Nucleotides: 047
Stems, first nucleotide, its partner, number of pairs: 001020002004017005034047005
Number, partner (000 for none) and nucleotide at each position: 001020c002019g003000a004017u005016c006015c007014g008013g009000a010000c011000g012000g013008c014007c015006g016005g017004g018000c019002c020001g021000a022000u023000c024000g025000c026000c027000g028000c029000c030000c031000c032000a033000g034047c035046c036045g037044g038043g039000a040000c041000g042000g043038c044037c045036c046035g047034g